[Rfam]
A member of the RNA family "CyVA-1 RNA" from Candidatus Korobacter versatilis, 79 nucleotides long.
The source organism's lineage runs through Bacteria, Pseudomonadati, Acidobacteriota, Terriglobia and Candidatus Korobacter versatilis.
Rfam's curators write: Cyanobacteria, Acidobacteria (1 example), Verrucomicrobia (1 example).
The base pairs follow the family's consensus structure, which is taken from published work.
RNA sequence: GAACGGCGGGCAGGUUUUUAUCGCUUCCCUGCUCUGAGGCUCGCGCGAAGGAGAGCGAUGUCAGCGCGAGCGCCGGAUC
Number, nucleotide and partner (000 for none) at each position: 001g079002a078003a000004c076005g000006g074007c000008g000009g033010g032011c031012a030013g000014g000015u000016u000017u000018u000019u000020a000021u000022c000023g000024c000025u000026u000027c000028c000029c000030u012031g011032c010033u009034c000035u000036g000037a000038g000039g071040c070041u069042c068043g067044c066045g065046c064047g000048a000049a000050g000051g000052a000053g000054a000055g000056c000057g000058a000059u000060g000061u000062c000063a000064g046065c045066g044067c043068g042069a041070g040071c039072g000073c000074c006075g000076g004077a000078u002079c001